Shown here is a 203-nucleotide sequence from Oryza barthii, a member of the family "MIR812 microRNA precursor family". Lineage of the source: Eukaryota > Spermatophyta > Liliopsida > Oryzeae > Oryza. The base pairs follow the family's consensus structure, which was predicted with RNAalifold. The match comes from Rfam's covariance-model search (129 bits).
RNA sequence: AAUAAACAAAUUCGUGGUUUCCGUGUUUAACCUUUGAUCAUCCGUCUUAUAUGAUUUUUUUUAUGAUUAGUAUUUUUAUUGUUAUUAGAUGAUAAAACAUAAAUAAUACUUUAUGCGUGACAUCUUUUUAAAAAAAUUUAUAAUUUUUUUAAAUAAAACGAACGGUCAAAGGUUAUGCAUGAAAACCCACGAAUCUAUUUAUU
Numbered sequence: 001a002a003u004a005a006a007c008a009a010a011u012u013c014g015u016g017g018u019u020u021c022c023g024u025g026u027u028u029a030a031c032c033u034u035u036g037a038u039c040a041u042c043c044g045u046c047u048u049a050u051a052u053g054a055u056u057u058u059u060u061u062u063a064u065g066a067u068u069a070g071u072a073u074u075u076u077u078a079u080u081g082u083u084a085u086u087a088g089a090u091g092a093u094a095a096a097a098c099a100u101a102a103a104u105a106a107u108a109c110u111u112u113a114u115g116c117g118u119g120a121c122a123u124c125u126u127u128u129u130a131a132a133a134a135a136a137u138u139u140a141u142a143a144u145u146u147u148u149u150u151a152a153a154u155a156a157a158a159c160g161a162a163c164g165g166u167c168a169a170a171g172g173u174u175a176u177g178c179a180u181g182a183a184a185a186c187c188c189a190c191g192a193a194u195c196u197a198u199u200u201a202u203u
Stems, first nucleotide, its partner, number of pairs: 026177001028175004033170007041162001043160003047156004